Annotation: This 88-nucleotide sequence from Enterocloster bolteae belongs to the Rfam family "Group II catalytic intron D1-D4-1". NCBI's taxonomy places the organism under Bacteria, Bacillota, Lachnospirales, Enterocloster, Enterocloster bolteae. About the family: Group II introns are found in rRNA, tRNA and mRNA of organelles in fungi, plants and protists, and also in mRNA in bacteria.
[Rfam]
RNA sequence: AUCCCGCUUGCGGUUGAAAACGAUUUAUCGUGAGAAGUCAGCAGAAGCCAUAGUAGGCAAUCUUGUUAAAAAAAAAUUGCUGAAGGGC
Numbered sequence: 001a002u003c004c005c006g007c008u009u010g011c012g013g014u015u016g017a018a019a020a021c022g023a024u025u026u027a028u029c030g031u032g033a034g035a036a037g038u039c040a041g042c043a044g045a046a047g048c049c050a051u052a053g054u055a056g057g058c059a060a061u062c063u064u065g066u067u068a069a070a071a072a073a074a075a076a077u078u079g080c081u082g083a084a085g086g087g088c
Base pairs, nucleotide, nucleotide: 001025005022006021008019009018011016038045039044047088048087049086056081057080058079059078060077061076